[Rfam]
RNA sequence: CCGACACCGGCGACCGCCGGUGCGGACAUGAGCUGACACCGGUACCUGGUACGGCCGGUGCAG
Numbered sequence: 001c002c003g004a005c006a007c008c009g010g011c012g013a014c015c016g017c018c019g020g021u022g023c024g025g026a027c028a029u030g031a032g033c034u035g036a037c038a039c040c041g042g043u044a045c046c047u048g049g050u051a052c053g054g055c056c057g058g059u060g061c062a063g
Base pairs, nucleotide, nucleotide: 001025002024003023006021007020008019009018010017011016033063034062035061037060038059039058040057041056042055043054
Shown here is a 63-nucleotide RNA from Actinomadura rudentiformis, a member of the family "L17-Actino-Proteobacteria ribosomal protein leader". The base pairs follow the family's consensus structure, which is taken from published work.